The record is a 129-nucleotide RNA sequence from Maylandia zebra, which matches "Small nucleolar RNA SNORA65" in Rfam.
It scores 90 bits against the family's covariance model.
The family's consensus secondary structure was predicted with RNAalifold.
Lineage of the source: Eukaryota > Deuterostomia > Euacanthomorphacea > Pseudocrenilabrinae > Maylandia zebra complex.
On this family, see Huttenhofer et al., EMBO J 2001: "RNomics: an experimental approach that identifies 201 candidates for novel, small, non-messenger RNAs in mouse".
It is annotated as an H/ACA-box small nucleolar RNA.
[Rfam]
RNA sequence: CCCGCCACUAUGCCCGUCUGUCCCAGUGACUGAGUAUAAUCCAGUGGAGGCUCAGAUUGACCCGGCUUUAGGAAACAGGGCGGCCCAAAAACCGAUGGACCGCUCUGUGCCGAAAAGUCUGGAACACAA
Numbered sequence: 001c002c003c004g005c006c007a008c009u010a011u012g013c014c015c016g017u018c019u020g021u022c023c024c025a026g027u028g029a030c031u032g033a034g035u036a037u038a039a040u041c042c043a044g045u046g047g048a049g050g051c052u053c054a055g056a057u058u059g060a061c062c063c064g065g066c067u068u069u070a071g072g073a074a075a076c077a078g079g080g081c082g083g084c085c086c087a088a089a090a091a092c093c094g095a096u097g098g099a100c101c102g103c104u105c106u107g108u109g110c111c112g113a114a115a116a117g118u119c120u121g122g123a124a125c126a127c128a129a
Stems, first nucleotide, its partner, number of pairs: 005047005018034002020031001021029002062122004066117004071111002076107006085098002
Gene Ontology terms of the family: RNA processing and nucleolus. U65 belongs to the H/ACA class of snoRNAs which are thought to guide the sites of modification of uridines to pseudouridines.